[Rfam]
RNA sequence: UGCUCGAUGAUCGAAGUCACUCUAGACAUAUACGCUAUUCUGAGAAAUCGAAAGGGCUGAUAACACAGAAUAUGAGAGCU
Numbered sequence: 001u002g003c004u005c006g007a008u009g010a011u012c013g014a015a016g017u018c019a020c021u022c023u024a025g026a027c028a029u030a031u032a033c034g035c036u037a038u039u040c041u042g043a044g045a046a047a048u049c050g051a052a053a054g055g056g057c058u059g060a061u062a063a064c065a066c067a068g069a070a071u072a073u074g075a076g077a078g079c080u
Base pairs, nucleotide, nucleotide: 002079003078004077005076

Notes
This 80-nucleotide sequence from Zingiber officinale belongs to the Rfam family "Small nucleolar RNA U54". The family is grouped with related families in Rfam's "U54 clan". The family's consensus secondary structure was predicted with PFOLD. For this family Rfam cites "The high diversity of snoRNAs in plants: identification and comparative study of 120 snoRNA genes from Oryza sativa" (Chen et al., Nucleic Acids Res, 2003). U54 is a C/D box small nucleolar RNA, which acts as a methylation guide for 18S ribosomal RNA in plants. Lineage of the source: Eukaryota > Tracheophyta > Magnoliopsida > Liliopsida > Zingiber. By type it is a C/D-box small nucleolar RNA.